[Rfam]
RNA sequence: UCUGUUACUCUCAUGAUGAACCCAUGUGCCUCUGAGCUGCCAUGAUUCUGGCUUCAAAGUAAACCCUCUGAAGAGAUGGGAAAAAG
Numbered sequence: 001u002c003u004g005u006u007a008c009u010c011u012c013a014u015g016a017u018g019a020a021c022c023c024a025u026g027u028g029c030c031u032c033u034g035a036g037c038u039g040c041c042a043u044g045a046u047u048c049u050g051g052c053u054u055c056a057a058a059g060u061a062a063a064c065c066c067u068c069u070g071a072a073g074a075g076a077u078g079g080g081a082a083a084a085a086g
Base pairs, nucleotide, nucleotide: 002086003085005083008080009079010078
RNA: Small nucleolar RNA SNORD105
Organism: Castor canadensis